[Rfam]
RNA sequence: GGAUAUGAUGAAAAGGCAUAUAAUGUUUUGUGACGCCCAGUCUGAUCUGCUUCUGCAGAGUGAGUGAUUUGCCAUCUUUCUGAUUC
Numbered sequence: 001g002g003a004u005a006u007g008a009u010g011a012a013a014a015g016g017c018a019u020a021u022a023a024u025g026u027u028u029u030g031u032g033a034c035g036c037c038c039a040g041u042c043u044g045a046u047c048u049g050c051u052u053c054u055g056c057a058g059a060g061u062g063a064g065u066g067a068u069u070u071g072c073c074a075u076c077u078u079u080c081u082g083a084u085u086c
Stems, first nucleotide, its partner, number of pairs: 001086003015073004
Annotation
This 86-nucleotide RNA sequence from Brassica rapa belongs to the Rfam family "Small nucleolar RNA snoR4a". The match comes from Rfam's covariance-model search (58 bits). Rfam links the family to the GO terms nucleolus and RNA processing. The family's consensus secondary structure was predicted with WAR. By type it is a C/D-box small nucleolar RNA.